A member of the RNA family "Selenocysteine insertion sequence 1" from Vombatus ursinus, 68 nucleotides long. The literature on the family includes a 1996 paper in RNA by Walczak et al., "A novel RNA structural motif in the selenocysteine insertion element of eukaryotic selenoprotein mRNAs". A search with the family's covariance model found it, with a score of 37 bits. Taxonomically the source falls in Vombatus (Eukaryota, Teleostomi, Theria, Vombatidae). About the family: The incorporation of selenocysteine into a protein sequence is directed by an in-frame UGA codon (usually a stop codon) within the coding region of the mRNA. Selenoprotein mRNAs contain a conserved secondary structure in the 3' UTR that is required for the distinction of UGA stop from UGA selenocysteine. The selenocysteine insertion sequence (SECIS) is around 60 nt in length and adopts a hairpin structure which is sufficiently well-defined and conserved to act as a computational screen for selenoprotein genes.
Nucleotides: 068
Base pairs, nucleotide, nucleotide: 001068002067003066004065005064014053015052016051017050018049019048020047021046022045023044029039030038031037
Number, partner (000 for none) and nucleotide at each position: 001068g002067g003066u004065g005064c006000u007000u008000u009000a010000u011000g012000a013000c014053g015052g016051g017050a018049a019048g020047g021046a022045u023044u024000g025000a026000a027000a028000u029039g030038u031037c032000c033000u034000c035000u036000g037031g038030a039029u040000u041000c042000c043000u044023g045022g046021u047020u048019c049018u050017u051016c052015c053014c054000u055000g056000a057000a058000a059000u060000c061000c062000u063000u064005g065004c066003a067002u068001c

Pairs were carried over by alignment from the consensus structure, which is taken from published work.